[Rfam]
RNA sequence: CCCCCCGAAACAUACCGCAGUAUGACCUGCCCGGAGGUAGGUGGCGGGGUAGAGCACUGAUUGGAGGUCCCGGGGGGUAACACCCUCGCCCUCCUGUCAAACUCCGAAUCCGUCACCGCCGUAGAAGGGCGGAGUCAGGGCUGGGGGGUAAGCUCCCAGUCCGCGAGGGAGACAACCCAGACCGGGGUUAAGGCCCCUAAGUGUCGGCUAAGUGUUAACGCUAAAGGAGGUCCUGGGCCUAAGACAGCUGGGAGGUAGGCUUAGAAGCAGCCAUCCUUUAAAGAGUGCGUAACAGCUCACCAGCCGAGGCUCAGGGCGCCGAAAAUGGACGGGGCUCAAGCCGACCGCCGAUACCCCGGGGCACCGAAAGGUGAUCCGGUAGGGGGGCGUACCGAUGGCGCAGAAGCUCGGGUGUGAGCUCGGGUGGAGCCGUCGGUAACGAAUAU
Numbered sequence: 001c002c003c004c005c006c007g008a009a010a011c012a013u014a015c016c017g018c019a020g021u022a023u024g025a026c027c028u029g030c031c032c033g034g035a036g037g038u039a040g041g042u043g044g045c046g047g048g049g050u051a052g053a054g055c056a057c058u059g060a061u062u063g064g065a066g067g068u069c070c071c072g073g074g075g076g077g078u079a080a081c082a083c084c085c086u087c088g089c090c091c092u093c094c095u096g097u098c099a100a101a102c103u104c105c106g107a108a109u110c111c112g113u114c115a116c117c118g119c120c121g122u123a124g125a126a127g128g129g130c131g132g133a134g135u136c137a138g139g140g141c142u143g144g145g146g147g148g149u150a151a152g153c154u155c156c157c158a159g160u161c162c163g164c165g166a167g168g169g170a171g172a173c174a175a176c177c178c179a180g181a182c183c184g185g186g187g188u189u190a191a192g193g194c195c196c197c198u199a200a201g202u203g204u205c206g207g208c209u210a211a212g213u214g215u216u217a218a219c220g221c222u223a224a225a226g227g228a229g230g231u232c233c234u235g236g237g238c239c240u241a242a243g244a245c246a247g248c249u250g251g252g253a254g255g256u257a258g259g260c261u262u263a264g265a266a267g268c269a270g271c272c273a274u275c276c277u278u279u280a281a282a283g284a285g286u287g288c289g290u291a292a293c294a295g296c297u298c299a300c301c302a303g304c305c306g307a308g309g310c311u312c313a314g315g316g317c318g319c320c321g322a323a324a325a326u327g328g329a330c331g332g333g334g335c336u337c338a339a340g341c342c343g344a345c346c347g348c349c350g351a352u353a354c355c356c357c358g359g360g361g362c363a364c365c366g367a368a369a370g371g372u373g374a375u376c377c378g379g380u381a382g383g384g385g386g387g388c389g390u391a392c393c394g395a396u397g398g399c400g401c402a403g404a405a406g407c408u409c410g411g412g413u414g415u416g417a418g419c420u421c422g423g424g425u426g427g428a429g430c431c432g433u434c435g436g437u438a439a440c441g442a443a444u445a446u
Stems, first nucleotide, its partner, number of pairs: 001387006011024005026134001027132006036120003040117008052105001053103002059098003063094005072087005138162009167178003182359007192349003201346001203345006226320002230317010247304005253277003258272003278282001283298001287296002360377002362373004388441001390438010406425008
A member of the RNA family "Archaeal large subunit ribosomal RNA" from Archaeoglobus sulfaticallidus, 446 nucleotides of a longer RNA. A search with the family's covariance model found it, with a score of 2940 bits. The organism belongs to Archaeoglobus sulfaticallidus, within Archaea.